[Rfam]
RNA sequence: UUCCCCACAGUUCUCCGACUCUCGUUUUCCGUCAGGAACGUCUAUCGCAGACCUCUCCUCAUGGCCGGAUGACCCGAUGUGCCGCUCUCGAGCCUGUAACAGGACCUCGCUGCCAGCCGCAAUUGGAUUUUUCGUCGUCAUUUGCUGUCGGUCACUAGACAGCCCGGCCGGAUAGGAGAGAACGAGCUUCGGAACUUAACCCUAGCUAUACGU
Numbered sequence: 001u002u003c004c005c006c007a008c009a010g011u012u013c014u015c016c017g018a019c020u021c022u023c024g025u026u027u028u029c030c031g032u033c034a035g036g037a038a039c040g041u042c043u044a045u046c047g048c049a050g051a052c053c054u055c056u057c058c059u060c061a062u063g064g065c066c067g068g069a070u071g072a073c074c075c076g077a078u079g080u081g082c083c084g085c086u087c088u089c090g091a092g093c094c095u096g097u098a099a100c101a102g103g104a105c106c107u108c109g110c111u112g113c114c115a116g117c118c119g120c121a122a123u124u125g126g127a128u129u130u131u132u133c134g135u136c137g138u139c140a141u142u143u144g145c146u147g148u149c150g151g152u153c154a155c156u157a158g159a160c161a162g163c164c165c166g167g168c169c170g171g172a173u174a175g176g177a178g179a180g181a182a183c184g185a186g187c188u189u190c191g192g193a194a195c196u197u198a199a200c201c202c203u204a205g206c207u208a209u210a211c212g213u
Stems, first nucleotide, its partner, number of pairs: 009196003015192004
RNA: Ascomycota telomerase RNA, nucleotides 64 to 276